The family of this 106-nucleotide sequence from Niallia nealsonii is "SAM riboswitch aptamer (S box leader)". For this family Rfam cites "Structure of the S-adenosylmethionine riboswitch regulatory mRNA element" (Montange and Batey, Nature, 2006). The family's consensus secondary structure is taken from published work. It scores 95 bits against the family's covariance model.

[Rfam]
RNA sequence: CUCUUAUAAUGAGAGGCGGAGGGACUGGCCCAGUGAAGCCUCAGCAACCAUUCAAUAUGAAAAGGUGCUAAUUCCAGCAAAGCAUUUAUGUUUUGGCAGAUAAGAG
Numbered sequence: 001c002u003c004u005u006a007u008a009a010u011g012a013g014a015g016g017c018g019g020a021g022g023g024a025c026u027g028g029c030c031c032a033g034u035g036a037a038g039c040c041u042c043a044g045c046a047a048c049c050a051u052u053c054a055a056u057a058u059g060a061a062a063a064g065g066u067g068c069u070a071a072u073u074c075c076a077g078c079a080a081a082g083c084a085u086u087u088a089u090g091u092u093u094u095g096g097c098a099g100a101u102a103a104g105a106g
Stems, first nucleotide, its partner, number of pairs: 001106007013042005021031003025077004043069004048065002051061004073098001078095006